[Rfam]
RNA sequence: CGGUUUUUGUACUACACAUAGGUACUGGAAAACUUACCACAGAUUAUCCAGUGCUUGGUCUAGUGCAAGAAUUGC
Numbered sequence: 001c002g003g004u005u006u007u008u009g010u011a012c013u014a015c016a017c018a019u020a021g022g023u024a025c026u027g028g029a030a031a032a033c034u035u036a037c038c039a040c041a042g043a044u045u046a047u048c049c050a051g052u053g054c055u056u057g058g059u060c061u062a063g064u065g066c067a068a069g070a071a072u073u074g075c
Base pairs, nucleotide, nucleotide: 003072004071005070006069007068008067009066010065011064012063016059017058019057020056021055022054023053025051026050027049029045030044
RNA: mir-239 microRNA precursor family